[Rfam]
RNA sequence: AAUGGCAAAUGAUGUAAACACAGUUUUUUGCUUAACCCUGAAAUAUUAUGUGGACUCAAAUCUCCGCUUAUUACCUGAUGCCAUU
Numbered sequence: 001a002a003u004g005g006c007a008a009a010u011g012a013u014g015u016a017a018a019c020a021c022a023g024u025u026u027u028u029u030g031c032u033u034a035a036c037c038c039u040g041a042a043a044u045a046u047u048a049u050g051u052g053g054a055c056u057c058a059a060a061u062c063u064c065c066g067c068u069u070a071u072u073a074c075c076u077g078a079u080g081c082c083a084u085u
Stems, first nucleotide, its partner, number of pairs: 003083005
The family of this 85-nucleotide RNA from Papaver somniferum is "Small nucleolar RNA R16". It scores 74 bits against the family's covariance model.